RNA sequence: UUACUAAAUAAUAAAGUCAUUUUAAUUUUAAUAAAGUAAUUUAAUUUAUAGUAAAGGAGCAACACCAAACCUCUUGAUAUAACAAGAAAUUUAGUAUUGCUCCUUUA
Numbered sequence: 001u002u003a004c005u006a007a008a009u010a011a012u013a014a015a016g017u018c019a020u021u022u023u024a025a026u027u028u029u030a031a032u033a034a035a036g037u038a039a040u041u042u043a044a045u046u047u048a049u050a051g052u053a054a055a056g057g058a059g060c061a062a063c064a065c066c067a068a069a070c071c072u073c074u075u076g077a078u079a080u081a082a083c084a085a086g087a088a089a090u091u092u093a094g095u096a097u098u099g100c101u102c103c104u105u106u107a
Base pairs, nucleotide, nucleotide: 053106054105055104056103057102058101059100060099061098062097064095065094067092068091069090072087073086074085075084
RNA: Plastid-psbA-1 3UTR RNA
Organism: Potentilla hebiichigo